[Rfam]
RNA: MIR6152 microRNA precursor family
Organism: Nicotiana attenuata
RNA sequence: UGUAUUCGAGUGUAUUCGACUGUAUUCAUGGCGUGAAAUAGAGGAUUACACUGUUUUUAAAACGAAAAGUGAAUCAAUUAAUAUAAUAGACUCCU
Numbered sequence: 001u002g003u004a005u006u007c008g009a010g011u012g013u014a015u016u017c018g019a020c021u022g023u024a025u026u027c028a029u030g031g032c033g034u035g036a037a038a039u040a041g042a043g044g045a046u047u048a049c050a051c052u053g054u055u056u057u058u059a060a061a062a063c064g065a066a067a068a069g070u071g072a073a074u075c076a077a078u079u080a081a082u083a084u085a086a087u088a089g090a091c092u093c094c095u
Base pairs, nucleotide, nucleotide: 002092007089009087011085012084013083015081016080018079019078021076022075024074025073026072027071028070029069032064033063034062035057036056037055038054039053040052041051